The family of this 138-nucleotide sequence from a Bacillota bacterium is "c-di-AMP riboswitch aptamer (ydaO/yuaA leader)".

RNA sequence: UACUAACCAUAGCCGAAUCUGGUAUGUACUUACCAGUACGGGGGAUAUACUUUUGGGGUGAAUCUAGCUAACGCUAGUAGGGUCUGCCUUUCUUCCCGAACCCGACAACUAACCUCGGAGGCUAAUGACAACGAGAGA
Number, nucleotide and partner (000 for none) at each position: 001u000002a000003c000004u000005a000006a000007c000008c000009a000010u000011a123012g122013c121014c120015g000016a000017a000018u000019c036020u035021g034022g033023u032024a031025u000026g000027u000028a000029c000030u000031u024032a023033c022034c021035a020036g019037u000038a000039c117040g116041g115042g114043g113044g000045a000046u000047a000048u055049a054050c000051u000052u000053u000054u049055g048056g103057g102058g101059u000060g000061a000062a000063u000064c077065u076066a075067g074068c000069u000070a000071a000072c000073g000074c067075u066076a065077g064078u000079a000080g097081g096082g095083u000084c000085u000086g000087c000088c000089u000090u000091u000092c000093u000094u000095c082096c081097c080098g000099a000100a000101c058102c057103c056104g000105a000106c000107a000108a000109c000110u000111a000112a000113c043114c042115u041116c040117g039118g000119a000120g014121g013122c012123u011124a000125a000126u000127g000128a000129c000130a000131a000132c000133g000134a000135g000136a000137g000138a000

The organism belongs to Bacillota, within Bacteria. Rfam's curators write: This family represents a conserved RNA structure found upstream of the ydaO and yuaA genes in Bacillus subtilis and related genes in other bacteria.